A member of the RNA family "Purine riboswitch aptamer" from Thermovenabulum gondwanense, 104 nucleotides long. The source organism's lineage runs through Bacteria, Clostridia, Thermosediminibacterales, Thermosediminibacteraceae and Thermovenabulum.
RNA sequence: UAAAAAUUUGCCCGCAACCCCUGUAUAAUUCCGGGAAUAUGGCCCGGAAGUUUCUACCGGGCGGCCGUAAACCGCCGAAGGCUAUAGGGGAAUCAUAGUAUUCC
Numbered sequence: 001u002a003a004a005a006a007u008u009u010g011c012c013c014g015c016a017a018c019c020c021c022u023g024u025a026u027a028a029u030u031c032c033g034g035g036a037a038u039a040u041g042g043c044c045c046g047g048a049a050g051u052u053u054c055u056a057c058c059g060g061g062c063g064g065c066c067g068u069a070a071a072c073c074g075c076c077g078a079a080g081g082c083u084a085u086a087g088g089g090g091a092a093u094c095a096u097a098g099u100a101u102u103c104c
Stems, first nucleotide, its partner, number of pairs: 018090008029049007058080001060076005
Dot-bracket structure: .................((((((((...(((((((.......)))))))........(.(((((.......)))))...)..))))))))..............